[Rfam]
RNA sequence: UUGUAGUGUGACAUGCCGUUUAAUGUGGAACUCUGAUUUUAUAAUUUAUAAUUUAUAAUUAAAUUGAUUUUGGGAAACGGGGUGUUACACUUUG
Numbered sequence: 001u002u003g004u005a006g007u008g009u010g011a012c013a014u015g016c017c018g019u020u021u022a023a024u025g026u027g028g029a030a031c032u033c034u035g036a037u038u039u040u041a042u043a044a045u046u047u048a049u050a051a052u053u054u055a056u057a058a059u060u061a062a063a064u065u066g067a068u069u070u071u072g073g074g075a076a077a078c079g080g081g082g083u084g085u086u087a088c089a090c091u092u093u094g
Base pairs, nucleotide, nucleotide: 002094003093005091006090007089008088009087010086011085012084013083014082016080017079018078019077020076

The record is a 94-nucleotide RNA from Medicago truncatula, which matches "MIR2617 microRNA precursor family" in Rfam. The family's consensus secondary structure was predicted with RNAalifold. It scores 47 bits against the family's covariance model. Taxonomically the source falls in Medicago (Eukaryota, Tracheophyta, Euphyllophyta, Fabaceae).